Notes
A member of the RNA family "ROOL RNA", 604 nucleotides long.
[Rfam]
RNA sequence: GCCGUAAUUAAAAAUAACAGAUACCCUAGUGAAGAAGGGCUGUCACCCUGCUAGGACAUUCUUAGAGUAGUCUGUAUUAAGAAGGAUACCUUUUAAUAUAGGACUUAAGUGACAUUAUAAUUGAUAAGUCCACUACUUAUUAAGAAGAUGGAGCUUGAAGGUUACGGAAAGUACCAAUAGUUAGGAAUGGUGUAUCUAUACAGUUUAAUAUAAUGCCGCAACAGUGUGGGGAGAGCAAUAGACGCUUGAGAAGAGAAGAACCUUAAGUCUUAGUCCUGUGGUGGGAUUGAGCAGCUUAAGGAAUACCAACCAAUCUCCUUCGCUAUGAUGUUGUAGAAAUACAACUAUAACACACAACAGCGGACAAGUAGCCCAUAGGCGUUGAAGAGAAAAUAACUUUUGUUUGCGGACAAAAAAAAUGAUAGGUUAUUCUGAAUGAUGGGUGAAAGUUACAGGUAGAAAGUCCUGUCAUAGCAUUGGGGAGAAAUCCUGUGGUAAGAAGUUUAGAGGUCGCUCCUUUAAGCUCAGACUUAUCAUCUAUGUAGCAUAAUAAUAGCGGACUGUAUAGGAUAAGGCGAAAGCCUAUCUGUUUUUAUAAUUAUAU
Numbered sequence: 001g002c003c004g005u006a007a008u009u010a011a012a013a014a015u016a017a018c019a020g021a022u023a024c025c026c027u028a029g030u031g032a033a034g035a036a037g038g039g040c041u042g043u044c045a046c047c048c049u050g051c052u053a054g055g056a057c058a059u060u061c062u063u064a065g066a067g068u069a070g071u072c073u074g075u076a077u078u079a080a081g082a083a084g085g086a087u088a089c090c091u092u093u094u095a096a097u098a099u100a101g102g103a104c105u106u107a108a109g110u111g112a113c114a115u116u117a118u119a120a121u122u123g124a125u126a127a128g129u130c131c132a133c134u135a136c137u138u139a140u141u142a143a144g145a146a147g148a149u150g151g152a153g154c155u156u157g158a159a160g161g162u163u164a165c166g167g168a169a170a171g172u173a174c175c176a177a178u179a180g181u182u183a184g185g186a187a188u189g190g191u192g193u194a195u196c197u198a199u200a201c202a203g204u205u206u207a208a209u210a211u212a213a214u215g216c217c218g219c220a221a222c223a224g225u226g227u228g229g230g231g232a233g234a235g236c237a238a239u240a241g242a243c244g245c246u247u248g249a250g251a252a253g254a255g256a257a258g259a260a261c262c263u264u265a266a267g268u269c270u271u272a273g274u275c276c277u278g279u280g281g282u283g284g285g286a287u288u289g290a291g292c293a294g295c296u297u298a299a300g301g302a303a304u305a306c307c308a309a310c311c312a313a314u315c316u317c318c319u320u321c322g323c324u325a326u327g328a329u330g331u332u333g334u335a336g337a338a339a340u341a342c343a344a345c346u347a348u349a350a351c352a353c354a355c356a357a358c359a360g361c362g363g364a365c366a367a368g369u370a371g372c373c374c375a376u377a378g379g380c381g382u383u384g385a386a387g388a389g390a391a392a393a394u395a396a397c398u399u400u401u402g403u404u405u406g407c408g409g410a411c412a413a414a415a416a417a418a419a420u421g422a423u424a425g426g427u428u429a430u431u432c433u434g435a436a437u438g439a440u441g442g443g444u445g446a447a448a449g450u451u452a453c454a455g456g457u458a459g460a461a462a463g464u465c466c467u468g469u470c471a472u473a474g475c476a477u478u479g480g481g482g483a484g485a486a487a488u489c490c491u492g493u494g495g496u497a498a499g500a501a502g503u504u505u506a507g508a509g510g511u512c513g514c515u516c517c518u519u520u521a522a523g524c525u526c527a528g529a530c531u532u533a534u535c536a537u538c539u540a541u542g543u544a545g546c547a548u549a550a551u552a553a554u555a556g557c558g559g560a561c562u563g564u565a566u567a568g569g570a571u572a573a574g575g576c577g578a579a580a581g582c583c584u585a586u587c588u589g590u591u592u593u594u595a596u597a598a599u600u601a602u603a604u
Stems, first nucleotide, its partner, number of pairs: 012596001014594001016592002020588001025055005036049004057189006069105003072101003076097007084089001106157005113150004160175003164172001197568001203562001209556001214553001218361002224355005229319006245255003261301006269291007279308004321381004330345005365449001371444006431529004455467002471541003474490001481489002492538001495535001498532002502525001504522007573584004

Rfam describes the family as follows. Firmicutes, Fusobacteria (1 example), Tenericutes (1 example).